[Rfam]
RNA sequence: AUUAAAUUGAUAUUAGCCAGUGUCUCUAGCACAAGAGGUCCUCUCUUGUGCUAGAGACACUGGCUAAUAUCAAUUAAAAAAAAGGUUAG
Numbered sequence: 001a002u003u004a005a006a007u008u009g010a011u012a013u014u015a016g017c018c019a020g021u022g023u024c025u026c027u028a029g030c031a032c033a034a035g036a037g038g039u040c041c042u043c044u045c046u047u048g049u050g051c052u053a054g055a056g057a058c059a060c061u062g063g064c065u066a067a068u069a070u071c072a073a074u075u076a077a078a079a080a081a082a083a084g085g086u087u088a089g
Stems, first nucleotide, its partner, number of pairs: 005075008015065008024056001025054001028052006035045004